[Rfam]
RNA sequence: GAGCCAGUGGAUGAAGGGAGUGGGCCGUACCCCAACAUCUAUUUGGGCUGGGCUCAGGAAAGUCCCCGGGCCACGUGCUGCAGAGAUGCAGUCUUAGAAACGAGAUGGGCUUCGAGGGUUUGGAGCUCCCGUCGCCACCGCGCGACGAGGCUGAGACGCGUGCGGAGCCUCCGUGAGGCUGAAUCGGCCGGUGCUCACAGUUAUUCACUUGGCCCAUUGUUCUAACAGAACGGGGCUUACGCUCCACUGGCU
Dot-bracket structure: .((((((((((..[[[.[[.((((((....((.((......)).))....))))))...(((.((((...........((((....)))).........................................(((...((.(((...(((((......(....)...)))).)))).)).)))......................]].]]].(..(...)..).........)))))))....))))))))))
Numbered sequence: 001g002a003g004c005c006a007g008u009g010g011a012u013g014a015a016g017g018g019a020g021u022g023g024g025c026c027g028u029a030c031c032c033c034a035a036c037a038u039c040u041a042u043u044u045g046g047g048c049u050g051g052g053c054u055c056a057g058g059a060a061a062g063u064c065c066c067c068g069g070g071c072c073a074c075g076u077g078c079u080g081c082a083g084a085g086a087u088g089c090a091g092u093c094u095u096a097g098a099a100a101c102g103a104g105a106u107g108g109g110c111u112u113c114g115a116g117g118g119u120u121u122g123g124a125g126c127u128c129c130c131g132u133c134g135c136c137a138c139c140g141c142g143c144g145a146c147g148a149g150g151c152u153g154a155g156a157c158g159c160g161u162g163c164g165g166a167g168c169c170u171c172c173g174u175g176a177g178g179c180u181g182a183a184u185c186g187g188c189c190g191g192u193g194c195u196c197a198c199a200g201u202u203a204u205u206c207a208c209u210u211g212g213c214c215c216a217u218u219g220u221u222c223u224a225a226c227a228g229a230a231c232g233g234g235g236c237u238u239a240c241g242c243u244c245c246a247c248u249g250g251c252u
Stems, first nucleotide, its partner, number of pairs: 002252010014210003018206002021056006031046002034043002060238003064235004079090004132182003138178002141175003147172001148170004158163001212222001215219001
Shown here is a 252-nucleotide RNA from Eucalyptus grandis, a member of the family "RNase MRP". About the family: RNase MRP is an enzymatically active ribonucleoprotein with two distinct roles in eukaryotes. Taxonomically the source falls in Eucalyptus (Eukaryota, Gunneridae, malvids, Eucalypteae).